[Rfam]
RNA sequence: GCACAUCACUCUGGAGAGACCCGCGACCGCAGAUGGUCAAAACGGGCGCCGAAGGUGCACACCCGCGUUAAAGCGGGGCAACUCUCAGGCAAAAGGACAGAGGGGCGUAU
Numbered sequence: 001g002c003a004c005a006u007c008a009c010u011c012u013g014g015a016g017a018g019a020c021c022c023g024c025g026a027c028c029g030c031a032g033a034u035g036g037u038c039a040a041a042a043c044g045g046g047c048g049c050c051g052a053a054g055g056u057g058c059a060c061a062c063c064c065g066c067g068u069u070a071a072a073g074c075g076g077g078g079c080a081a082c083u084c085u086c087a088g089g090c091a092a093a094a095g096g097a098c099a100g101a102g103g104g105g106c107g108u109a110u
Base pairs, nucleotide, nucleotide: 006105007104009102010101011100012099013098020046021045022044023043048090049089050088051086052085055084057082062077063076064075065074066073
Glycine riboswitch aptamer: a 110-nucleotide sequence from Zwartia hollandica. Clan: Glycine riboswitch clan. It scores 59 bits against the family's covariance model. Taxonomically the source falls in Zwartia (Bacteria, Pseudomonadati, Pseudomonadota, Betaproteobacteria).